[Rfam]
Small nucleolar RNA U54: an 87-nucleotide sequence from Castanea mollissima. It scores 47 bits against the family's covariance model. Rfam links the family to the GO terms nucleolus and RNA processing. By type it is a C/D-box small nucleolar RNA. The base pairs follow the family's consensus structure, which was predicted with PFOLD. NCBI's taxonomy places the organism under Eukaryota, Streptophytina, Mesangiospermae, Fagaceae, Castanea. Rfam's curators write: U54 is a C/D box small nucleolar RNA, which acts as a methylation guide for 18S ribosomal RNA in plants. A reference for the family is Chen et al. (2003), "The high diversity of snoRNAs in plants: identification and comparative study of 120 snoRNA genes from Oryza sativa", Nucleic Acids Res.
RNA sequence: GGCUCCGUGAUUACAUGCCUGAAAGGGCAAUAUACGCUAUUCCGACUCAGAACAUGAGCAGAAAAUUCAAUUUUGAAAAUGAGAGCU
Numbered sequence: 001g002g003c004u005c006c007g008u009g010a011u012u013a014c015a016u017g018c019c020u021g022a023a024a025g026g027g028c029a030a031u032a033u034a035c036g037c038u039a040u041u042c043c044g045a046c047u048c049a050g051a052a053c054a055u056g057a058g059c060a061g062a063a064a065a066u067u068c069a070a071u072u073u074u075g076a077a078a079a080u081g082a083g084a085g086c087u
Stems, first nucleotide, its partner, number of pairs: 001087005
Dot-bracket structure: (((((.............................................................................)))))